[Rfam]
RNA: Vault RNA
Organism: Naja naja
RNA sequence: GAGUCAGCUUAGCCUAGCGGUUUCAUCGCAAUCCGAGUAAUUGUCAUUUAACUGCUAGUUCCUAGCAGUUUGAGUCCCGCGGGCGCUGCCUGGCUUUUUG
Numbered sequence: 001g002a003g004u005c006a007g008c009u010u011a012g013c014c015u016a017g018c019g020g021u022u023u024c025a026u027c028g029c030a031a032u033c034c035g036a037g038u039a040a041u042u043g044u045c046a047u048u049u050a051a052c053u054g055c056u057a058g059u060u061c062c063u064a065g066c067a068g069u070u071u072g073a074g075u076c077c078c079g080c081g082g083g084c085g086c087u088g089c090c091u092g093g094c095u096u097u098u099u100g
Stems, first nucleotide, its partner, number of pairs: 002095006012084004017080004026073003